[Rfam]
RNA sequence: AAUAGGAGGAAGGCAAAAUGCGAAGCAUUUUUUAAAGAUGCCUUCCGACGACAUGCCCUCGAACCAUCGGUGAGGGGGCGAUUCAUUGU
Numbered sequence: 001a002a003u004a005g006g007a008g009g010a011a012g013g014c015a016a017a018a019u020g021c022g023a024a025g026c027a028u029u030u031u032u033u034a035a036a037g038a039u040g041c042c043u044u045c046c047g048a049c050g051a052c053a054u055g056c057c058c059u060c061g062a063a064c065c066a067u068c069g070g071u072g073a074g075g076g077g078g079c080g081a082u083u084c085a086u087u088g089u
Stems, first nucleotide, its partner, number of pairs: 008046006015031006055079003059075002063071002
RNA: GA-cis RNA